[Rfam]
RNA sequence: GUCGUCGCGGGAGGCCAUGACACGCGGCCCGAACCCCGGCCGCCGGGACCGCGCCGAGCCACUGGCGAGACCGACCCGCGAAUGC
Numbered sequence: 001g002u003c004g005u006c007g008c009g010g011g012a013g014g015c016c017a018u019g020a021c022a023c024g025c026g027g028c029c030c031g032a033a034c035c036c037c038g039g040c041c042g043c044c045g046g047g048a049c050c051g052c053g054c055c056g057a058g059c060c061a062c063u064g065g066c067g068a069g070a071c072c073g074a075c076c077c078g079c080g081a082a083u084g085c
Stems, first nucleotide, its partner, number of pairs: 001085002005081007013060003023053005029047001038072002041067004
Description:
Rfam assigns this 85-nucleotide RNA sequence to the family "c-di-GMP-II-GAG riboswitch aptamer". It is one of the family's seed sequences. The base pairs follow the family's consensus structure, which is taken from published work. Rfam links the family to the GO terms cyclic-di-GMP binding and regulation of gene expression. On this family, see Weinberg et al., Proc Natl Acad Sci U S A 2017: "Bioinformatic analysis of riboswitch structures uncovers variant classes with altered ligand specificity".